Shown here is a 99-nucleotide RNA sequence from Laticauda laticaudata, a member of the family "Small nucleolar RNA snoR109". The organism belongs to Laticauda, within Eukaryota. On this family, see Marker et al., Curr Biol 2002: "Experimental RNomics: identification of 140 candidates for small non-messenger RNAs in the plant Arabidopsis thaliana". A search with the family's covariance model found it, with a score of 37 bits. Its family is annotated with RNA processing and nucleolus in the Gene Ontology.
RNA sequence: UGUUUGGAGCUAUAUCUAAGUUCUGAGCAGCUAAUUGGUUCUUUUGUUGAUUGUAUUUUUUUACCAAUCAACAAAAUAACCAAUCAGUUGCUCAGAAUU
Numbered sequence: 001u002g003u004u005u006g007g008a009g010c011u012a013u014a015u016c017u018a019a020g021u022u023c024u025g026a027g028c029a030g031c032u033a034a035u036u037g038g039u040u041c042u043u044u045u046g047u048u049g050a051u052u053g054u055a056u057u058u059u060u061u062u063a064c065c066a067a068u069c070a071a072c073a074a075a076a077u078a079a080c081c082a083a084u085c086a087g088u089u090g091c092u093c094a095g096a097a098u099u
Stems, first nucleotide, its partner, number of pairs: 025093008037081003043076003046072006